[Rfam]
RNA sequence: UGUCGAUGCCUUUCGGGGCAUUUCCUCCCUAGUCUUUGACCGCGCUCGUAUCGUUCGGGCGCGGUUCUUUUUAUCUGCG
Number, nucleotide and partner (000 for none) at each position: 001u000002g000003u000004c000005g000006a000007u000008g019009c018010c017011u016012u000013u000014c000015g000016g011017g010018g009019c008020a000021u000022u000023u000024c000025c000026u000027c000028c000029c000030u000031a000032g000033u000034c000035u000036u000037u000038g000039a000040c064041c063042g062043c061044g060045c059046u058047c057048g056049u000050a000051u000052c000053g000054u000055u000056c048057g047058g046059g045060c044061g043062c042063g041064g040065u000066u000067c000068u000069u000070u000071u000072u000073a000074u000075c000076u000077g000078c000079g000